[Rfam]
RNA sequence: CGGGUAUUAUCAAAACGAGAUACACCGAAAGGACGGUCUUUAUUACGAUCAAUAAACGACUUGUAUCUCAAUAGAGAGCGAGAACGGAGG
Numbered sequence: 001c002g003g004g005u006a007u008u009a010u011c012a013a014a015a016c017g018a019g020a021u022a023c024a025c026c027g028a029a030a031g032g033a034c035g036g037u038c039u040u041u042a043u044u045a046c047g048a049u050c051a052a053u054a055a056a057c058g059a060c061u062u063g064u065a066u067c068u069c070a071a072u073a074g075a076g077a078g079c080g081a082g083a084a085c086g087g088a089g090g
Stems, first nucleotide, its partner, number of pairs: 001027003004023005010018002057086002060082005066077003
RNA: pan motif